[Rfam]
RNA: Plastid psbT antisense RNA
RNA sequence: AAAGUUGGAUCUUCAAUUUUUUGGAAUGCUCCAAAUUC
Numbered sequence: 001a002a003a004g005u006u007g008g009a010u011c012u013u014c015a016a017u018u019u020u021u022u023g024g025a026a027u028g029c030u031c032c033a034a035a036u037u038c
Stems, first nucleotide, its partner, number of pairs: 003018006020035006